[Rfam]
RNA sequence: AAUUUUUGAGGUGAGCAAGGGCUCCUCACGCGCUAAUUUCUUUAGUAAACAGAGAUGUAGGAUACGCCGACCUACCAGAAAUA
Numbered sequence: 001a002a003u004u005u006u007u008g009a010g011g012u013g014a015g016c017a018a019g020g021g022c023u024c025c026u027c028a029c030g031c032g033c034u035a036a037u038u039u040c041u042u043u044a045g046u047a048a049a050c051a052g053a054g055a056u057g058u059a060g061g062a063u064a065c066g067c068c069g070a071c072c073u074a075c076c077a078g079a080a081a082u083a
Base pairs, nucleotide, nucleotide: 002082003081004080005079006078007077008076011029012028013027014026015025020068021067022066031052032046033045034044035043057075058074059073060072061071

A member of the RNA family "skipping-rope RNA" from Clostridium baratii, 83 nucleotides long.